Description: Shown here is a 162-nucleotide RNA from Protopolystoma xenopodis, a member of the family "U11 spliceosomal RNA". Gene Ontology terms of the family: mRNA 5'-splice site recognition, U11 snRNP and pre-mRNA 5'-splice site binding. Rfam 15.1 lists 2,595 matches to the family in 1,202 species. It scores 74 bits against the family's covariance model. By type it is a spliceosomal small nuclear RNA.
RNA sequence: UAAAAGGGCCUCUGUCGUGCGUGACACCGGUCUGUUAGCCUUCGGGCUGCGCUGGCCUCGCCACCCGCGGGCCGGCCGGAUCGGCGGAAUGGCCAUCUCGACAUUUCGGGGGCAUAAUCUUUGAACCGGGGCAGCCUGGCUCCGAAAGAUGCUGGCGCCCCU
Numbered sequence: 001u002a003a004a005a006g007g008g009c010c011u012c013u014g015u016c017g018u019g020c021g022u023g024a025c026a027c028c029g030g031u032c033u034g035u036u037a038g039c040c041u042u043c044g045g046g047c048u049g050c051g052c053u054g055g056c057c058u059c060g061c062c063a064c065c066c067g068c069g070g071g072c073c074g075g076c077c078g079g080a081u082c083g084g085c086g087g088a089a090u091g092g093c094c095a096u097c098u099c100g101a102c103a104u105u106u107c108g109g110g111g112g113c114a115u116a117a118u119c120u121u122u123g124a125a126c127c128g129g130g131g132c133a134g135c136c137u138g139g140c141u142c143c144g145a146a147a148g149a150u151g152c153u154g155g156c157g158c159c160c161c162u
Stems, first nucleotide, its partner, number of pairs: 008113005013026005027084008036075001085108007129160004134156003138152001140151001143148001
Dot-bracket structure: .......((((((((((....)))))((((((((.(......................................).))))))))(((((((..........))))))))))))...............((((.(((.(.(..(....)..)).)))))))..